[Rfam]
Shown here is a 270-nucleotide sequence from Galemys pyrenaicus, a member of the family "HIF-1 alpha IRES". This family represents the hypoxia-inducible factor 1-alpha internal ribosome entry site. HIF-1a is a subunit of the HIF-1 transcription factor, which induces transcription of several genes involved in the cellular response to hypoxia. The HIF-1a IRES allows translation to be maintained under hypoxic cell conditions that inhibit cap-dependent translation. A reference for the family is Lang et al. (2002), "Hypoxia-inducible factor-1alpha mRNA contains an internal ribosome entry site that allows efficient translation during normoxia and hypoxia", Mol Biol Cell. Rfam links the family to the GO term ribosome binding.
RNA sequence: CUCGUCUGAGGGGACGCGAGGAUCGCUCUCCCCGCCGCUUCGGGCCGGGCCCUGACAAGCAGCCCGAGCAGACACGCUUCUGAGCCGGACCUGGGCCCCGGCCGCUGUCGCCCGUUCCUCCUGCCUCGGGUCUCGCGAGGGGUUUCCCGCCUCCUACCCCCCACCUCUGGCCGUGCCUCCUCUCUCCGCGUGUGAGGGAGCCUGCGCUUAGGCCGGAGCGAGCCUGGGGGCCUCCGGCGUCGAAGGCUUUGCGGGGACCGAUUCGCCAUG
Numbered sequence: 001c002u003c004g005u006c007u008g009a010g011g012g013g014a015c016g017c018g019a020g021g022a023u024c025g026c027u028c029u030c031c032c033c034g035c036c037g038c039u040u041c042g043g044g045c046c047g048g049g050c051c052c053u054g055a056c057a058a059g060c061a062g063c064c065c066g067a068g069c070a071g072a073c074a075c076g077c078u079u080c081u082g083a084g085c086c087g088g089a090c091c092u093g094g095g096c097c098c099c100g101g102c103c104g105c106u107g108u109c110g111c112c113c114g115u116u117c118c119u120c121c122u123g124c125c126u127c128g129g130g131u132c133u134c135g136c137g138a139g140g141g142g143u144u145u146c147c148c149g150c151c152u153c154c155u156a157c158c159c160c161c162c163a164c165c166u167c168u169g170g171c172c173g174u175g176c177c178u179c180c181u182c183u184c185u186c187c188g189c190g191u192g193u194g195a196g197g198g199a200g201c202c203u204g205c206g207c208u209u210a211g212g213c214c215g216g217a218g219c220g221a222g223c224c225u226g227g228g229g230g231c232c233u234c235c236g237g238c239g240u241c242g243a244a245g246g247c248u249u250u251g252c253g254g255g256g257a258c259c260g261a262u263u264c265g266c267c268a269u270g
Base pairs, nucleotide, nucleotide: 001013002012003011016032018030019029020028021027034050035049036048071145072144075142118139119138120137122135175202177200178199179198180197185195186194214237216235218234220232